[Rfam]
RNA sequence: UAGUUAGAAAGUUUGUAGCCUAUUUAUGGAUUGUUUUAGACAAAAGGACGACUCAAAUUGACCUUUCAUUUGACUAAUGCAUGAAUGUAGAAGCGAUUGAAGGCGAUUGUAUUCACCAGCCAGAGGUAAAAUUUGAUGACCUGGUGAGGACACACGGAGGCGAAAGCGAUUGCCUAGAGCGUAUUCAGUGGUCAAGAACGUAAGCCGGAGGAUCAAAGAUGAUUAGAUACCGUUGUAGUUCCGGCCGUAAAUUAUGCCAACUUGUGCUUCUGCUUCUGCGGAGGCGCAUAGAGAAAUCAAGAGUUUAUGGGCUCUAGGGAUAGUAAUCCGGCAACGGACAAACUUAAAGAAAU
Numbered sequence: 001u002a003g004u005u006a007g008a009a010a011g012u013u014u015g016u017a018g019c020c021u022a023u024u025u026a027u028g029g030a031u032u033g034u035u036u037u038a039g040a041c042a043a044a045a046g047g048a049c050g051a052c053u054c055a056a057a058u059u060g061a062c063c064u065u066u067c068a069u070u071u072g073a074c075u076a077a078u079g080c081a082u083g084a085a086u087g088u089a090g091a092a093g094c095g096a097u098u099g100a101a102g103g104c105g106a107u108u109g110u111a112u113u114c115a116c117c118a119g120c121c122a123g124a125g126g127u128a129a130a131a132u133u134u135g136a137u138g139a140c141c142u143g144g145u146g147a148g149g150a151c152a153c154a155c156g157g158a159g160g161c162g163a164a165a166g167c168g169a170u171u172g173c174c175u176a177g178a179g180c181g182u183a184u185u186c187a188g189u190g191g192u193c194a195a196g197a198a199c200g201u202a203a204g205c206c207g208g209a210g211g212a213u214c215a216a217a218g219a220u221g222a223u224u225a226g227a228u229a230c231c232g233u234u235g236u237a238g239u240u241c242c243g244g245c246c247g248u249a250a251a252u253u254a255u256g257c258c259a260a261c262u263u264g265u266g267c268u269u270c271u272g273c274u275u276c277u278g279c280g281g282a283g284g285c286g287c288a289u290a291g292a293g294a295a296a297u298c299a300a301g302a303g304u305u306u307a308u309g310g311g312c313u314c315u316a317g318g319g320a321u322a323g324u325a326a327u328c329c330g331g332c333a334a335c336g337g338a339c340a341a342a343c344u345u346a347a348a349g350a351a352a353u
Stems, first nucleotide, its partner, number of pairs: 001316003011199004018192003090186003093182003097178002101175007108152002112148008123134003160167002204245006214238001218234004256312003259305003263288010291298002318345002327338004

A member of the RNA family "Microsporidia small subunit ribosomal RNA" from Anncaliia algerae, 353 nucleotides of a longer RNA.
It is one of the family's seed sequences.
The literature on the family includes a 2001 paper in Science by Yusupov et al., "Crystal structure of the ribosome at 5.5 A resolution".
Rfam links the family to the GO terms structural constituent of ribosome and ribosome.